[Rfam]
RNA sequence: CCCUUUGAUGUUGAGGCAUUGGUUUGGUACAUUUUUACUAACUUGGACAUAGAAUAUAACCAUAUUGUUUCUAAAGUUCUUGCUCGUAUUUAACCAAUUUUAGUUGGAGAACUUCACUCGCAAUUACUUAGCUACAAGC
Numbered sequence: 001c002c003c004u005u006u007g008a009u010g011u012u013g014a015g016g017c018a019u020u021g022g023u024u025u026g027g028u029a030c031a032u033u034u035u036u037a038c039u040a041a042c043u044u045g046g047a048c049a050u051a052g053a054a055u056a057u058a059a060c061c062a063u064a065u066u067g068u069u070u071c072u073a074a075a076g077u078u079c080u081u082g083c084u085c086g087u088a089u090u091u092a093a094c095c096a097a098u099u100u101u102a103g104u105u106g107g108a109g110a111a112c113u114u115c116a117c118u119c120g121c122a123a124u125u126a127c128u129u130a131g132c133u134a135c136a137a138g139c
Base pairs, nucleotide, nucleotide: 004138005137006136007135089108090107091106092105093104094103
A member of the RNA family "Small nucleolar RNA Z247" from Sorghum bicolor, 139 nucleotides long. The organism belongs to Sorghum, within Eukaryota. The base pairs follow the family's consensus structure, which was predicted with PFOLD. The literature on the family includes a 2003 paper in Nucleic Acids Res by Chen et al., "The high diversity of snoRNAs in plants: identification and comparative study of 120 snoRNA genes from Oryza sativa". It scores 45 bits against the family's covariance model.